[Rfam]
RNA: MIR821 microRNA precursor family
Organism: Miscanthus lutarioriparius
RNA sequence: AAUUUCAGUUGAAAAAGUUAUGAACAUAAAAGUUAUACAACUCCUCAAGAUCUACAACUUUUAUUUUGGUUAUUUGUUCAUCCGACAAAGUUAUAGUAACAUUGUUCAUAAAUUUUACAUAUCUCUUUUAUAGUUUACGAAACUAUAAAAGAGAUAUGUAAAAUUUAUGAACAAUGUUAUUAUAACUUUGUCGGAUGAACAAAUGACCAAAAUAAAAGUUGUAGAUCUUGAUCAGUUCUACAAUUUUUAUGUCCAUUACUUUUUCAGCUGAAGUC
Numbered sequence: 001a002a003u004u005u006c007a008g009u010u011g012a013a014a015a016a017g018u019u020a021u022g023a024a025c026a027u028a029a030a031a032g033u034u035a036u037a038c039a040a041c042u043c044c045u046c047a048a049g050a051u052c053u054a055c056a057a058c059u060u061u062u063a064u065u066u067u068g069g070u071u072a073u074u075u076g077u078u079c080a081u082c083c084g085a086c087a088a089a090g091u092u093a094u095a096g097u098a099a100c101a102u103u104g105u106u107c108a109u110a111a112a113u114u115u116u117a118c119a120u121a122u123c124u125c126u127u128u129u130a131u132a133g134u135u136u137a138c139g140a141a142a143c144u145a146u147a148a149a150a151g152a153g154a155u156a157u158g159u160a161a162a163a164u165u166u167a168u169g170a171a172c173a174a175u176g177u178u179a180u181u182a183u184a185a186c187u188u189u190g191u192c193g194g195a196u197g198a199a200c201a202a203a204u205g206a207c208c209a210a211a212a213u214a215a216a217a218g219u220u221g222u223a224g225a226u227c228u229u230g231a232u233c234a235g236u237u238c239u240a241c242a243a244u245u246u247u248u249a250u251g252u253c254c255a256u257u258a259c260u261u262u263u264u265c266a267g268c269u270g271a272a273g274u275c
Stems, first nucleotide, its partner, number of pairs: 014262005020256002024252001026250002030246005036240002039237004045231009055221013069207007077199005083193010094182006101175012114162002117159006131145006